[Rfam]
RNA sequence: UGCUACUUCUCCUGAGCCAUUCUGAGCCUCAAUCACUUGCCAGAGAGAUUGGUUCAGGAAUUUGUCAGGGAUAGCC
Numbered sequence: 001u002g003c004u005a006c007u008u009c010u011c012c013u014g015a016g017c018c019a020u021u022c023u024g025a026g027c028c029u030c031a032a033u034c035a036c037u038u039g040c041c042a043g044a045g046a047g048a049u050u051g052g053u054u055c056a057g058g059a060a061u062u063u064g065u066c067a068g069g070g071a072u073a074g075c076c
Stems, first nucleotide, its partner, number of pairs: 002075004008071002011069005020059009031050004036045003
RNA: mir-1200 microRNA precursor family
Organism: Pongo pygmaeus